[Rfam]
RNA sequence: UCGCAAGCCUUCCAGCGUGGCUGGGUCUGACCCAUGACCCAAAUCAUUCCUGUAGCGCUUGCAAGAGCAGUCUUGUGAUGGUUUGAGGCCUUCCUCUGCUUCAACUUCGGAGAAAGGUUAUAGAAAUCUCAAACACGG
Numbered sequence: 001u002c003g004c005a006a007g008c009c010u011u012c013c014a015g016c017g018u019g020g021c022u023g024g025g026u027c028u029g030a031c032c033c034a035u036g037a038c039c040c041a042a043a044u045c046a047u048u049c050c051u052g053u054a055g056c057g058c059u060u061g062c063a064a065g066a067g068c069a070g071u072c073u074u075g076u077g078a079u080g081g082u083u084u085g086a087g088g089c090c091u092u093c094c095u096c097u098g099c100u101u102c103a104a105c106u107u108c109g110g111a112g113a114a115a116g117g118u119u120a121u122a123g124a125a126a127u128c129u130c131a132a133a134c135a136c137g138g
Stems, first nucleotide, its partner, number of pairs: 003062006018046003023040005074131002077128002089117004094112001096110003

Notes:
The record is a 138-nucleotide sequence from Pogona vitticeps, which matches "Small nucleolar RNA SNORA9" in Rfam. The source organism's lineage runs through Eukaryota, Chordata, Craniata, Tetrapoda and Pogona. It scores 110 bits against the family's covariance model. Pairs were carried over by alignment from the consensus structure, which was predicted with PFOLD. The family is grouped with related families in Rfam's "SNORA9 clan". Rfam links the family to the GO terms RNA processing and nucleolus. Rfam classes the family as an H/ACA-box small nucleolar RNA.